[Rfam]
RNA sequence: UGGUUCAUCAUGAUGAAAUAUUGCGGAUGUAAAUCUAUUGUCACGGCGGAAAAGCGCAAAAAUAAUGUCGAGACUUCCGUUGCCUUCCUUCUGAUCAUGGACA
Dot-bracket structure: ..(((..................((((................................................))))....................))).
Numbered sequence: 001u002g003g004u005u006c007a008u009c010a011u012g013a014u015g016a017a018a019u020a021u022u023g024c025g026g027a028u029g030u031a032a033a034u035c036u037a038u039u040g041u042c043a044c045g046g047c048g049g050a051a052a053a054g055c056g057c058a059a060a061a062a063u064a065a066u067g068u069c070g071a072g073a074c075u076u077c078c079g080u081u082g083c084c085u086u087c088c089u090u091c092u093g094a095u096c097a098u099g100g101a102c103a
Stems, first nucleotide, its partner, number of pairs: 003102003024079004
A member of the RNA family "Small nucleolar RNA Z13/snr52" from Claviceps africana, 103 nucleotides long. It scores 88 bits against the family's covariance model. Gene Ontology terms of the family: RNA processing and nucleolus. Taxonomically the source falls in Claviceps (Eukaryota, Ascomycota, Sordariomycetes, Clavicipitaceae). The family's RNA type in Rfam is C/D-box small nucleolar RNA.